Rfam assigns this 57-nucleotide sequence from Pseudonocardia autotrophica to the family "F6 TB sRNA". A search with the family's covariance model found it, with a score of 57 bits. On this family, see Arnvig and Young, Mol Microbiol 2009: "Identification of small RNAs in Mycobacterium tuberculosis". Rfam 15.1 lists 310 matches to the family in 304 species. The source organism's lineage runs through Bacteria, Bacillati, Actinomycetota, Pseudonocardiaceae and Pseudonocardia. Pairs were carried over by alignment from the consensus structure, which is taken from published work.
[Rfam]
RNA sequence: UGGUGAGCCCCGCGGUGCAACCGGACCCCCGACUCGGUCGCACCGCGGGGCGUUCCA
Number, nucleotide and partner (000 for none) at each position: 001u000002g056003g055004u000005g053006a000007g051008c050009c049010c048011c047012g046013c045014g044015g043016u042017g041018c040019a000020a038021c037022c036023g000024g000025a000026c000027c000028c000029c000030c000031g000032a000033c000034u000035c000036g022037g021038u020039c000040g018041c017042a016043c015044c014045g013046c012047g011048g010049g009050g008051c007052g000053u005054u000055c003056c002057a000